[Rfam]
RNA: Glutamine riboswitch aptamer (glnA leader)
RNA sequence: AUCGUUUAUCCUAUACGGACGGAAGUAGGCAUUUGCCGAAGAAACGCACC
Numbered sequence: 001a002u003c004g005u006u007u008a009u010c011c012u013a014u015a016c017g018g019a020c021g022g023a024a025g026u027a028g029g030c031a032u033u034u035g036c037c038g039a040a041g042a043a044a045c046g047c048a049c050c
Stems, first nucleotide, its partner, number of pairs: 003046005009019003022047001028037003